Shown here is a 74-nucleotide RNA sequence from Eudromia elegans, a member of the family "Small nucleolar RNA SNORD19". Rfam 15.1 lists 1,431 matches to the family in 609 species. The family's RNA type in Rfam is C/D-box small nucleolar RNA. On this family, see Huttenhofer et al., EMBO J 2001: "RNomics: an experimental approach that identifies 201 candidates for novel, small, non-messenger RNAs in mouse". The match comes from Rfam's covariance-model search (43 bits).
RNA sequence: GAGAAAUGAGGAUACAUACCUUGUCUUACUUAUGCAGUGAAGACUUCAGAUCCAACUCUGAUCUCACACUGAAU
Numbered sequence: 001g002a003g004a005a006a007u008g009a010g011g012a013u014a015c016a017u018a019c020c021u022u023g024u025c026u027u028a029c030u031u032a033u034g035c036a037g038u039g040a041a042g043a044c045u046u047c048a049g050a051u052c053c054a055a056c057u058c059u060g061a062u063c064u065c066a067c068a069c070u071g072a073a074u
Stems, first nucleotide, its partner, number of pairs: 001065004